[Rfam]
RNA sequence: AAGAUUCUUCGGGGCGGGGUGCGAUUCCCCACCGGCGGUAUUCCUGUAAAGGUAAGCCCGCGAGCCGAAAGGCAUGAUUUGGUGUGAUUCCAAAGCCGACAGUACAGUCUGGAUGAGAGAAGAUUACA
Numbered sequence: 001a002a003g004a005u006u007c008u009u010c011g012g013g014g015c016g017g018g019g020u021g022c023g024a025u026u027c028c029c030c031a032c033c034g035g036c037g038g039u040a041u042u043c044c045u046g047u048a049a050a051g052g053u054a055a056g057c058c059c060g061c062g063a064g065c066c067g068a069a070a071g072g073c074a075u076g077a078u079u080u081g082g083u084g085u086g087a088u089u090c091c092a093a094a095g096c097c098g099a100c101a102g103u104a105c106a107g108u109c110u111g112g113a114u115g116a117g118a119g120a121a122g123a124u125u126a127c128a
Stems, first nucleotide, its partner, number of pairs: 004125001006123005017029003031108002033098002035061004056096002066072001078094005100111003
RNA: FMN riboswitch aptamer (RFN element)